[Rfam]
RNA sequence: AGUUGGUGCAGUGAAUAAGGCAGUAAGCUUGGGCAACCAAGCCGAUGAGUCGUCGUUGACCUAGUGCGAUUCUGCCGAUAUAGAUUAGGCGCACUAACC
Numbered sequence: 001a002g003u004u005g006g007u008g009c010a011g012u013g014a015a016u017a018a019g020g021c022a023g024u025a026a027g028c029u030u031g032g033g034c035a036a037c038c039a040a041g042c043c044g045a046u047g048a049g050u051c052g053u054c055g056u057u058g059a060c061c062u063a064g065u066g067c068g069a070u071u072c073u074g075c076c077g078a079u080a081u082a083g084a085u086u087a088g089g090c091g092c093a094c095u096a097a098c099c
Stems, first nucleotide, its partner, number of pairs: 002098008019076004027042005047072006054066005
The family of this 99-nucleotide sequence is "Methylophilales-1 RNA".